RNA: glmS glucosamine-6-phosphate activated ribozyme aptamer
Organism: Tetragenococcus halophilus
RNA sequence: CAUUAUUUAACAGCGCCAGAUCUGUUUUACAGAUGACGAGGAAAAGAGCUUAUCGAAAUAUUCGGCGGGUGGCUCUAGGGUCUGCACUCUAAAGACAAGAACAAAAACAAGCUGCAAAGUUUGUAACAAAAAUCUUGUCGCGCAGUUAG
Dot-bracket structure: ...................((((((...))))))..........(((((...((((.....))))......)))))(((((....)))))...(((((((......(((((((....)))))))........)))))))..........